The family of this 67-nucleotide RNA is "DUF3800-VIII RNA".
Pairs were carried over by alignment from the consensus structure, which is taken from published work.
It is one of the family's seed sequences.
[Rfam]
RNA sequence: GGCCGCCUGGCGGCGUUGAAGGCCUGCGUACCUACGCGGGGUAUUGACGUAGACGCCCUGGGCGGUC
Number, nucleotide and partner (000 for none) at each position: 001g067002g066003c065004c064005g063006c062007c061008u060009g059010g058011c000012g057013g056014c055015g054016u053017u052018g000019a000020a000021g042022g000023c040024c039025u038026g037027c036028g035029u034030a000031c000032c000033u000034a029035c028036g027037c026038g025039g024040g023041g000042u021043a000044u000045u000046g000047a000048c000049g000050u000051a000052g017053a016054c015055g014056c013057c012058c010059u009060g008061g007062g006063c005064g004065g003066u002067c001